[Rfam]
RNA sequence: GGUCAUGAGUGUCAGCGUCAAGCCCCGGCUCGCUGGCCGGCAACCCUCCUCCGCGGUGGGGUGCCCCGGGUGACGACCAGGCCAGGCACCGAUCGGUGCCCGGCAAGCGCGGGGC
Numbered sequence: 001g002g003u004c005a006u007g008a009g010u011g012u013c014a015g016c017g018u019c020a021a022g023c024c025c026c027g028g029c030u031c032g033c034u035g036g037c038c039g040g041c042a043a044c045c046c047u048c049c050u051c052c053g054c055g056g057u058g059g060g061g062u063g064c065c066c067c068g069g070g071u072g073a074c075g076a077c078c079a080g081g082c083c084a085g086g087c088a089c090c091g092a093u094c095g096g097u098g099c100c101c102g103g104c105a106a107g108c109g110c111g112g113g114g115c
Stems, first nucleotide, its partner, number of pairs: 001078004009038001011037006021030002039065003044061003048056002081104003085100006
Background
Shown here is a 115-nucleotide RNA from Cellulomonas sp. JH27-2, a member of the family "SAM (S-adenosyl methionine) riboswitch aptamer". The organism belongs to Cellulomonas, within Bacteria. The family is grouped with related families in Rfam's "SAM clan".